[Rfam]
RNA sequence: UGAGUAAGUCAGAUGAUCGCAUGCGUAAGCAUGAGGAAAGUCCGAGCUCCAUAGGGCAAGAUGCUGGGUAACACCCAGUGGGGGUAACCCCAAGGAUAGUGCAACAGAAAUAAACCGCCUAAGUUUAUACUUAGGUAAGGAUGGAAAGGUGAGGUAAGAGCUCACCAGCAACUAGGCGACUAGUUGGCUCUGUAAACCCCAUCUGGAGCAAGACCAAGUUAGGGAGAUUUGGAGGUGGCUGCCCGUCACCUUCCCGUAUGGUAGGUUGCUUGAACCCAUUGGCAACAAUGGGUCUAGAUAGAUGAUCGUCUAAUACAGAACUCGGCUUAUAGGCUUAGUCACUUG
Numbered sequence: 001u002g003a004g005u006a007a008g009u010c011a012g013a014u015g016a017u018c019g020c021a022u023g024c025g026u027a028a029g030c031a032u033g034a035g036g037a038a039a040g041u042c043c044g045a046g047c048u049c050c051a052u053a054g055g056g057c058a059a060g061a062u063g064c065u066g067g068g069u070a071a072c073a074c075c076c077a078g079u080g081g082g083g084g085u086a087a088c089c090c091c092a093a094g095g096a097u098a099g100u101g102c103a104a105c106a107g108a109a110a111u112a113a114a115c116c117g118c119c120u121a122a123g124u125u126u127a128u129a130c131u132u133a134g135g136u137a138a139g140g141a142u143g144g145a146a147a148g149g150u151g152a153g154g155u156a157a158g159a160g161c162u163c164a165c166c167a168g169c170a171a172c173u174a175g176g177c178g179a180c181u182a183g184u185u186g187g188c189u190c191u192g193u194a195a196a197c198c199c200c201a202u203c204u205g206g207a208g209c210a211a212g213a214c215c216a217a218g219u220u221a222g223g224g225a226g227a228u229u230u231g232g233a234g235g236u237g238g239c240u241g242c243c244c245g246u247c248a249c250c251u252u253c254c255c256g257u258a259u260g261g262u263a264g265g266u267u268g269c270u271u272g273a274a275c276c277c278a279u280u281g282g283c284a285a286c287a288a289u290g291g292g293u294c295u296a297g298a299u300a301g302a303u304g305a306u307c308g309u310c311u312a313a314u315a316c317a318g319a320a321c322u323c324g325g326c327u328u329a330u331a332g333g334c335u336u337a338g339u340c341a342c343u344u345g
Stems, first nucleotide, its partner, number of pairs: 001341003005337006011330001012310007020033005038328003042325005047208004054244004059204005064078005079093001080091004094199002099197002101193003115140002117136008148166006168188001169186007212267004222255005235249005274293008
Shown here is a 345-nucleotide sequence from Gottschalkia purinilytica, a member of the family "Bacterial RNase P class A". The match comes from Rfam's covariance-model search (300 bits). By type it is a ribozyme. Taxonomically the source falls in Gottschalkia (Bacteria, Bacillati, Bacillota, Gottschalkiaceae).